[Rfam]
RNA: Vault RNA
RNA sequence: GAGCCGGCUUUAGCUCAGCGGUUCCUUCGACUACUGUUCACAAAUUUCAACUUUAAUUUGUGCCUGAUCGUCUUCCCGGGGGUUCGAAUCCCGAGUCGAUCCGAGGCCCGCGGGCGCUUCCUGGCCCUUUU
Number, nucleotide and partner (000 for none) at each position: 001g000002a000003g125004c124005c123006g122007g121008c000009u000010u000011u000012a000013g115014c114015u113016c112017a000018g111019c110020g109021g108022u000023u000024c000025c000026u088027u087028c086029g085030a084031c000032u000033a000034c000035u000036g000037u000038u000039c000040a000041c000042a000043a000044a000045u000046u000047u000048c000049a000050a000051c000052u000053u000054u000055a000056a000057u000058u000059u000060g000061u000062g000063c000064c000065u000066g000067a000068u000069c000070g000071u000072c000073u000074u000075c000076c000077c000078g000079g000080g000081g000082g000083u000084u030085c029086g028087a027088a026089u000090c000091c000092c000093g000094a000095g000096u000097c000098g000099a000100u000101c000102c000103g000104a000105g000106g000107c000108c021109c020110g019111c018112g016113g015114g014115c013116g000117c000118u000119u000120c000121c007122u006123g005124g004125c003126c000127c000128u000129u000130u000131u000